This 63-nucleotide RNA sequence from Myotis brandtii belongs to the Rfam family "mir-9242 microRNA precursor family". A search with the family's covariance model found it, with a score of 62 bits. The family's consensus secondary structure was predicted with RNAalifold. The family has 2 seed sequences and 940 matches in Rfam 15.1. Lineage of the source: Eukaryota > Metazoa > Dipnotetrapodomorpha > Mammalia > Myotis. Rfam links the family to the GO terms RISC complex and miRNA-mediated post-transcriptional gene silencing.
RNA sequence: GGCCUCCAUCUUUGGGGUGAUCGAUUGUGGGGCUCCACGAUUGAUCACCCGCAGAGGGAGGCC
Numbered sequence: 001g002g003c004c005u006c007c008a009u010c011u012u013u014g015g016g017g018u019g020a021u022c023g024a025u026u027g028u029g030g031g032g033c034u035c036c037a038c039g040a041u042u043g044a045u046c047a048c049c050c051g052c053a054g055a056g057g058g059a060g061g062c063c
Stems, first nucleotide, its partner, number of pairs: 001063007009055003013051002016049015